Nucleotides: 080
Stems, first nucleotide, its partner, number of pairs: 003077005009071007018062004023057003029053003
Number, partner (000 for none) and nucleotide at each position: 001000u002000u003077c004076g005075g006074a007073u008000g009071u010070g011069c012068c013067u014066g015065a016000c017000u018062c019061u020060u021059u022000g023057c024056u025055c026000u027000u028000g029053c030052c031051c032000u033000g034000u035000a036000u037000a038000u039000u040000g041000a042000u043000a044000a045000u046000u047000u048000u049000u050000c051031g052030g053029g054000u055025g056024a057023g058000c059021a060020a061019a062018g063000u064000u065015u066014c067013a068012g069011g070010u071009g072000u073007g074006u075005u076004u077003g078000c079000g080000a
A member of the RNA family "mir-87 microRNA precursor family" from Microctonus aethiopoides, 80 nucleotides long.
On this family, see Sempere et al., Dev Biol 2003: "Temporal regulation of microRNA expression in Drosophila melanogaster mediated by hormonal signals and broad-Complex gene activity".
NCBI's taxonomy places the organism under Eukaryota, Protostomia, Allotriocarida, Insecta, Microctonus.
Rfam links the family to the GO terms miRNA-mediated post-transcriptional gene silencing and RISC complex.
It scores 58 bits against the family's covariance model.